[Rfam]
RNA: Small nucleolar RNA SNORD83
RNA sequence: GCCACAUGAUUUGAUGUAGAUUGCAUUAGCAUUAUUGCAAAGAUGACUGUCCAUCUAUCACCCAGGACUGAUGGCU
Numbered sequence: 001g002c003c004a005c006a007u008g009a010u011u012u013g014a015u016g017u018a019g020a021u022u023g024c025a026u027u028a029g030c031a032u033u034a035u036u037g038c039a040a041a042g043a044u045g046a047c048u049g050u051c052c053a054u055c056u057a058u059c060a061c062c063c064a065g066g067a068c069u070g071a072u073g074g075c076u
Base pairs, nucleotide, nucleotide: 001075002074003073004072029038030037031036